[Rfam]
RNA: U1 spliceosomal RNA
RNA sequence: UUACUUACCUGGAUGGGGUUAAUAGGAGAUCAUUAAGGUCCAUGGCCUAGGGAAGGACUUCCAUUGCACUUAGGAUGGGUUCUUACCUAAGGUCUACCCAAGAGGUGGAGCCUACAUCAUAAUUUAUGUUAUGGUGCUUGCGUUCGCGCGACCCCCAC
Number, nucleotide and partner (000 for none) at each position: 001u000002u000003a000004c000005u000006u000007a000008c000009c000010u000011g000012g118013a117014u116015g115016g048017g047018g046019u045020u044021a043022a000023u042024a000025g040026g039027a000028g000029a000030u000031c000032a000033u000034u000035a000036a000037g000038g000039u026040c025041c000042a023043u021044g020045g019046c018047c017048u016049a088050g087051g086052g000053a000054a000055g082056g081057a000058c078059u077060u000061c074062c073063a000064u000065u000066g000067c000068a000069c000070u000071u000072a000073g062074g061075a000076u000077g059078g058079g000080u000081u056082c055083u000084u000085a000086c051087c050088u049089a000090a113091g112092g111093u109094c108095u107096a000097c105098c104099c000100a000101a000102g000103a000104g098105g097106u000107g095108g094109a093110g000111c092112c091113u090114a000115c015116a014117u013118c012119a000120u000121a000122a000123u000124u000125u000126a000127u000128g000129u000130u000131a000132u000133g156134g155135u000136g153137c000138u000139u150140g149141c148142g147143u000144u000145c000146g000147c142148g141149c140150g139151a000152c000153c136154c000155c134156c133157a000158c000